[Rfam]
RNA sequence: GAGGGCAGGCCCCUCGGAACCGGCUGGCACGAGCAGGCUUCAAACCACCUUAAGCUGCACUGGAAAAGAUUCUAUGUGGUGGGUGUUGAGAAAAAGUCCAGGCGAGGACAACGG
Numbered sequence: 001g002a003g004g005g006c007a008g009g010c011c012c013c014u015c016g017g018a019a020c021c022g023g024c025u026g027g028c029a030c031g032a033g034c035a036g037g038c039u040u041c042a043a044a045c046c047a048c049c050u051u052a053a054g055c056u057g058c059a060c061u062g063g064a065a066a067a068g069a070u071u072c073u074a075u076g077u078g079g080u081g082g083g084u085g086u087u088g089a090g091a092a093a094a095a096g097u098c099c100a101g102g103c104g105a106g107g108a109c110a111a112c113g114g
Stems, first nucleotide, its partner, number of pairs: 001015005016041003020037002023034003049090005054080002057077003062072003099114001101112001
The record is a 114-nucleotide RNA sequence from Desulfobacteraceae bacterium SEEP-SAG9, which matches "Group II catalytic intron D1-D4-2" in Rfam. From the family's description: Group II introns are found in rRNA, tRNA and mRNA of organelles in fungi, plants and protists, and also in mRNA in bacteria. Pairs were carried over by alignment from the consensus structure. For this family Rfam cites "The ins and outs of group II introns" (Bonen and Vogel, Trends Genet, 2001). The organism belongs to Desulfobacteraceae, within Bacteria.